[Rfam]
RNA sequence: AUGAAAGCAGGAGGAGAGAUCGCCGGACGGCGACGCCGAAGGAGCAAGCGGAAGUGAAACUCUCAGGCAAAAAGACUCUUGUUUGACG
Numbered sequence: 001a002u003g004a005a006a007g008c009a010g011g012a013g014g015a016g017a018g019a020u021c022g023c024c025g026g027a028c029g030g031c032g033a034c035g036c037c038g039a040a041g042g043a044g045c046a047a048g049c050g051g052a053a054g055u056g057a058a059a060c061u062c063u064c065a066g067g068c069a070a071a072a073a074g075a076c077u078c079u080u081g082u083u084u085g086a087c088g
Stems, first nucleotide, its partner, number of pairs: 006083008020033004035068003038064002042062003048055002